RNA sequence: CUCCACAGCUACUGGCCUGGAACUGUUCAGAACUGUAGCAGUUGCAGUAUUCCCUCUGUGGAAAAUAAAGGGUUACACAGUGUUAAGCGCCUUCUCAGAAUAUCUGAGAUCAGAAGAUCUGAGAAGGACUUCUGUGUAACAAACACUG
Numbered sequence: 001c002u003c004c005a006c007a008g009c010u011a012c013u014g015g016c017c018u019g020g021a022a023c024u025g026u027u028c029a030g031a032a033c034u035g036u037a038g039c040a041g042u043u044g045c046a047g048u049a050u051u052c053c054c055u056c057u058g059u060g061g062a063a064a065a066u067a068a069a070g071g072g073u074u075a076c077a078c079a080g081u082g083u084u085a086a087g088c089g090c091c092u093u094c095u096c097a098g099a100a101u102a103u104c105u106g107a108g109a110u111c112a113g114a115a116g117a118u119c120u121g122a123g124a125a126g127g128a129c130u131u132c133u134g135u136g137u138a139a140c141a142a143a144c145a146c147u148g
Base pairs, nucleotide, nucleotide: 003061004060005059006058017047018046019045021043022042023041024040025039075137076136077135078134079133090127091126092125093124094123095122096121097120098119099118
Background:
Rfam assigns this 148-nucleotide RNA from Chaetorhynchus papuensis to the family "Small nucleolar RNA SNORA41". Gene Ontology terms of the family: nucleolus and RNA processing. A reference for the family is Huttenhofer et al. (2001), "RNomics: an experimental approach that identifies 201 candidates for novel, small, non-messenger RNAs in mouse", EMBO J. The match comes from Rfam's covariance-model search (92 bits). ACA41 is a member of the H/ACA class of snoRNA that guide the sites of modification of uridines to pseudouridines.